[Rfam]
RNA sequence: UGGAGGGUCACUGGAGACAGCGGUUCAUCGAUCUAUUCUCUGAGCUGAUGAUCCUUGUAUUAUAUUCAGGACAGGAAUUGAUCGAUAAACCUCUGCAUCCAGCGCUCAUCCU
Numbered sequence: 001u002g003g004a005g006g007g008u009c010a011c012u013g014g015a016g017a018c019a020g021c022g023g024u025u026c027a028u029c030g031a032u033c034u035a036u037u038c039u040c041u042g043a044g045c046u047g048a049u050g051a052u053c054c055u056u057g058u059a060u061u062a063u064a065u066u067c068a069g070g071a072c073a074g075g076a077a078u079u080g081a082u083c084g085a086u087a088a089a090c091c092u093c094u095g096c097a098u099c100c101a102g103c104g105c106u107c108a109u110c111c112u
Stems, first nucleotide, its partner, number of pairs: 013100003018095003022091004027086007036077003